[Rfam]
RNA sequence: AUCAGAGUAGAAAACGAAGCGUCAAGUGCCGAGAGGAUGGGAUGUUGCCUUUUGGACGAAGGACGAAAGUUCGCGGUUUUGUUUUCGCAUUCGCUGCA
Numbered sequence: 001a002u003c004a005g006a007g008u009a010g011a012a013a014a015c016g017a018a019g020c021g022u023c024a025a026g027u028g029c030c031g032a033g034a035g036g037a038u039g040g041g042a043u044g045u046u047g048c049c050u051u052u053u054g055g056a057c058g059a060a061g062g063a064c065g066a067a068a069g070u071u072c073g074c075g076g077u078u079u080u081g082u083u084u085u086c087g088c089a090u091u092c093g094c095u096g097c098a
Base pairs, nucleotide, nucleotide: 003096004095005094010086011085012084013083014082015081016080017079018078019077020075021074022073026057027056029055030054031053032052033051034050035049036048040092041091042090043089044088061072062071063070064069

A member of the RNA family "THF (Tetrahydrofolate) riboswitch aptamer" from Tetragenococcus halophilus, 98 nucleotides long. Its family is annotated with tetrahydrofolate metabolic process in the Gene Ontology. Rfam describes the family as follows. Tetrahydrofolate (THF) riboswitch was first reported for Ames et al. as an RNA motif in 5' untranslated (5'-UTR)regions of folate transport and biosynthesis genes in Firmicutes genomes. A reference for the family is Huang et al. (2011), "Long-range pseudoknot interactions dictate the regulatory response in the tetrahydrofolate riboswitch", Proc Natl Acad Sci U S A.